Rfam assigns this 315-nucleotide RNA sequence from Ignisphaera aggregans to the family "Archaeal signal recognition particle RNA". The family is grouped with related families in Rfam's "SRP clan". Pairs were carried over by alignment from the consensus structure, which is taken from published work.
RNA sequence: CGCACAGGUAGGGCCAGGGGGCUCGCCCUCCCCUAUACCCGAAAUGGGCGUCACGCGGGGGCCAGUAACCCGCUGUAUGGGUAUAUGGAUAUACCCAGAGAGCCCCAGACCGCGAUGAACUCCGCCCUGUGGGGCCGGUGGUGAUGGGGCUACCUCCGGAAGGAGGUAGCUACCAUCUUUACAGGGGGAAAGCGGCCAGGCCCGGAAGGGAGCAACCUAACCCCUGACACCGGCGUUCACAGGUCCACGGAGUAGAGGUAAGGUCUGGGGAGCACUCUGGGUAUAUCCAUAUACCCAUACAGCGGGAGCUGUGCG
Numbered sequence: 001c002g003c004a005c006a007g008g009u010a011g012g013g014c015c016a017g018g019g020g021g022c023u024c025g026c027c028c029u030c031c032c033c034u035a036u037a038c039c040c041g042a043a044a045u046g047g048g049c050g051u052c053a054c055g056c057g058g059g060g061g062c063c064a065g066u067a068a069c070c071c072g073c074u075g076u077a078u079g080g081g082u083a084u085a086u087g088g089a090u091a092u093a094c095c096c097a098g099a100g101a102g103c104c105c106c107a108g109a110c111c112g113c114g115a116u117g118a119a120c121u122c123c124g125c126c127c128u129g130u131g132g133g134g135c136c137g138g139u140g141g142u143g144a145u146g147g148g149g150c151u152a153c154c155u156c157c158g159g160a161a162g163g164a165g166g167u168a169g170c171u172a173c174c175a176u177c178u179u180u181a182c183a184g185g186g187g188g189a190a191a192g193c194g195g196c197c198a199g200g201c202c203c204g205g206a207a208g209g210g211a212g213c214a215a216c217c218u219a220a221c222c223c224c225u226g227a228c229a230c231c232g233g234c235g236u237u238c239a240c241a242g243g244u245c246c247a248c249g250g251a252g253u254a255g256a257g258g259u260a261a262g263g264u265c266u267g268g269g270g271a272g273c274a275c276u277c278u279g280g281g282u283a284u285a286u287c288c289a290u291a292u293a294c295c296c297a298u299a300c301a302g303c304g305g306g307a308g309c310u311g312u313g314c315g
Stems, first nucleotide, its partner, number of pairs: 001315007009307001012063004016034006038059004069306016087287001090285011103270009114259001116257001119253006126243008134234004139229002141179001143177005148171010182226006194217002201210003